The family of this 103-nucleotide RNA from Cynoglossus semilaevis is "mir-454 microRNA precursor family". The organism belongs to Cynoglossus, within Eukaryota. The literature on the family includes a 2005 paper in Genes Dev by Chen et al., "The developmental miRNA profiles of zebrafish as determined by small RNA cloning".

[Rfam]
RNA sequence: UUAUUUCAUCCUUGGAGACGAGACUUUAUCAAUAUUGCCUCUGCUUUCAGAGACUUAACACAGUAGUGCAAUAUUGCUUAUAGGGUCUUGACUCUGAGGUGUG
Number, nucleotide and partner (000 for none) at each position: 001u000002u000003a000004u000005u000006u000007c000008a000009u000010c000011c000012u000013u000014g000015g000016a000017g000018a000019c000020g089021a088022g087023a086024c085025u084026u083027u082028a081029u080030c076031a075032a074033u073034a072035u071036u070037g069038c068039c000040u000041c066042u065043g064044c063045u062046u000047u000048c000049a000050g000051a000052g000053a000054c000055u000056u000057a000058a000059c000060a000061c000062a045063g044064u043065a042066g041067u000068g038069c037070a036071a035072u034073a033074u032075u031076g030077c000078u000079u000080a029081u028082a027083g026084g025085g024086u023087c022088u021089u020090g000091a000092c000093u000094c000095u000096g000097a000098g000099g000100u000101g000102u000103g000

The family's consensus secondary structure was predicted with RNAalifold.